Rfam assigns this 91-nucleotide RNA sequence from Senegalia massiliensis to the family "THF (Tetrahydrofolate) riboswitch aptamer". Taxonomically the source falls in Senegalia (Bacteria, Bacillati, Eubacteriales, Clostridiaceae). About the family: Tetrahydrofolate (THF) riboswitch was first reported for Ames et al. as an RNA motif in 5' untranslated (5'-UTR)regions of folate transport and biosynthesis genes in Firmicutes genomes. A reference for the family is Trausch et al. (2011), "The structure of a tetrahydrofolate-sensing riboswitch reveals two ligand binding sites in a single aptamer", Structure. Rfam 15.1 lists 747 matches to the family in 747 species. It scores 73 bits against the family's covariance model. Its family is annotated with tetrahydrofolate metabolic process in the Gene Ontology.
RNA sequence: AUCAGAGUAGGUAAAGUGCGUUAAGUGUUAAGAGAUGGGAAGUAGCUCUUGAACGAAGGUUUAACCGCGAUAUUUUGCCGCAUCCGCUGAA
Numbered sequence: 001a002u003c004a005g006a007g008u009a010g011g012u013a014a015a016g017u018g019c020g021u022u023a024a025g026u027g028u029u030a031a032g033a034g035a036u037g038g039g040a041a042g043u044a045g046c047u048c049u050u051g052a053a054c055g056a057a058g059g060u061u062u063a064a065c066c067g068c069g070a071u072a073u074u075u076u077g078c079c080g081c082a083u084c085c086g087c088u089g090a091a
Base pairs, nucleotide, nucleotide: 002090003089004088005087010079011078012077013076014075015074016073017072018071019069020068021067025054026053028052029051030050031049032048033047034046038085039084040083042081058066059065060064